[Rfam]
RNA sequence: CUUUUCUUGCUAAGGUGCAUCUUGUGUAGUCAGUGAAUUAGUGUAGUAUCUACUGCGCUAGAUGCUCCUUCCGGCAGGAGAC
Numbered sequence: 001c002u003u004u005u006c007u008u009g010c011u012a013a014g015g016u017g018c019a020u021c022u023u024g025u026g027u028a029g030u031c032a033g034u035g036a037a038u039u040a041g042u043g044u045a046g047u048a049u050c051u052a053c054u055g056c057g058c059u060a061g062a063u064g065c066u067c068c069u070u071c072c073g074g075c076a077g078g079a080g081a082c
Base pairs, nucleotide, nucleotide: 004079005078006077007076010073013069014068015067017065018064019063020062021061022060024058025057026056027055029054032051033050
RNA: mir-17 microRNA precursor family